[Rfam]
Source information:
This 173-nucleotide sequence from Peptoclostridium acidaminophilum belongs to the Rfam family "Group II catalytic intron D1-D4-3". Group II introns are found in rRNA, tRNA and mRNA of organelles in fungi, plants and protists, and also in mRNA in bacteria. The base pairs follow the family's consensus structure. A reference for the family is Lehmann and Schmidt (2003), "Group II introns: structure and catalytic versatility of large natural ribozymes", Crit Rev Biochem Mol Biol.
RNA sequence: UCCAUCGUGAGGUGGAAUUUGAAGGAAGCUGGAGGCAAAGUGCCGAGCUGAGGUACACGAAUCACAUUUGAGGCUUAACCAGGUGGAUGAGGUUGCCAUACAAACCGAAGUCCUAUAACUACCCGAACCCUACACGGUAAAUGCGGCGGUUACAUGGGAUGAAGGUUAUCGUU
Numbered sequence: 001u002c003c004a005u006c007g008u009g010a011g012g013u014g015g016a017a018u019u020u021g022a023a024g025g026a027a028g029c030u031g032g033a034g035g036c037a038a039a040g041u042g043c044c045g046a047g048c049u050g051a052g053g054u055a056c057a058c059g060a061a062u063c064a065c066a067u068u069u070g071a072g073g074c075u076u077a078a079c080c081a082g083g084u085g086g087a088u089g090a091g092g093u094u095g096c097c098a099u100a101c102a103a104a105c106c107g108a109a110g111u112c113c114u115a116u117a118a119c120u121a122c123c124c125g126a127a128c129c130c131u132a133c134a135c136g137g138u139a140a141a142u143g144c145g146g147c148g149g150u151u152a153c154a155u156g157g158g159a160u161g162a163a164g165g166u167u168a169u170c171g172u173u
Base pairs, nucleotide, nucleotide: 001016002015003014004013005012006011028173030171031170032169035166036165040160041159043157044156045155046151047150048149049148050147062146063145065143066142067141073138074137075136081131082130083129085113086112087111088110091106092105093104094103
Notes:
The match comes from Rfam's covariance-model search (131 bits).